The family of this 76-nucleotide RNA from Waterburya agarophytonicola is "Glutamine riboswitch aptamer (glnA leader)".

RNA sequence: AUCGUUCAUCUUUUCUUCAUCCCCCUUAGAAAAGACGGAAGUAAGGAAUAAAUUUGGCAUCCUGAAGGAACGCACC
Numbered sequence: 001a002u003c004g005u006u007c008a009u010c011u012u013u014u015c016u017u018c019a020u021c022c023c024c025c026u027u028a029g030a031a032a033a034g035a036c037g038g039a040a041g042u043a044a045g046g047a048a049u050a051a052a053u054u055u056g057g058c059a060u061c062c063u064g065a066a067g068g069a070a071c072g073c074a075c076c
Base pairs, nucleotide, nucleotide: 003072004071005070006069007068009035010034011033012032013031014030015029016028038073044063045062046061
Record summary
The source organism's lineage runs through Bacteria, Cyanophyceae, Pleurocapsales, Pleurocapsaceae and Waterburya agarophytonicola. The match comes from Rfam's covariance-model search (58 bits).